Background
This 123-nucleotide RNA sequence from Enterobacteriaceae bacterium strain FGI 57 belongs to the Rfam family "Enterobacteria greA leader". The organism belongs to Enterobacteriaceae, within Bacteria. Gene Ontology term of the family: regulation of gene expression.
[Rfam]
RNA sequence: GACAUACUACGGCGCAAAGCCCUGUAAAGUAAACGAUGACCCAUAGUGAACUUCAGGGUAAAAUGCGUAUCAAAUGAGAAAUUGCUGCUGACCUGGGGCCUUGUACCCGGGUCGGUUUUCUUU
Numbered sequence: 001g002a003c004a005u006a007c008u009a010c011g012g013c014g015c016a017a018a019g020c021c022c023u024g025u026a027a028a029g030u031a032a033a034c035g036a037u038g039a040c041c042c043a044u045a046g047u048g049a050a051c052u053u054c055a056g057g058g059u060a061a062a063a064u065g066c067g068u069a070u071c072a073a074a075u076g077a078g079a080a081a082u083u084g085c086u087g088c089u090g091a092c093c094u095g096g097g098g099c100c101u102u103g104u105a106c107c108c109g110g111g112u113c114g115g116u117u118u119u120c121u122u123u
Stems, first nucleotide, its partner, number of pairs: 001040001003038003010035002014030002041048001057071004087116011